[Rfam]
RNA: SAM riboswitch aptamer (S box leader)
RNA sequence: CAACCAUCCAGAGCGGCCGAGAGAUCUGGCUCGACGACGCCGCAGCAACCCGGGGACCCUCCGUCCCGCCAUGGGUGCUACCGCCAGGACCGAUGGAGG
Number, nucleotide and partner (000 for none) at each position: 001c099002a000003a000004c096005c095006a094007u093008c092009c000010a000011g000012a000013g043014c042015g041016g040017c039018c000019g000020a000021g032022a031023g030024a000025u000026c087027u086028g085029g084030c023031u022032c021033g000034a000035c000036g000037a000038c000039g017040c016041c015042g014043c013044a079045g078046c077047a076048a000049c075050c074051c000052g070053g069054g000055g000056a000057c000058c000059c000060u000061c000062c000063g000064u000065c000066c000067c000068g000069c053070c052071a000072u000073g000074g050075g049076u047077g046078c045079u044080a000081c000082c000083g091084c029085c028086a027087g026088g000089a000090c000091c083092g008093a007094u006095g005096g004097a000098g000099g001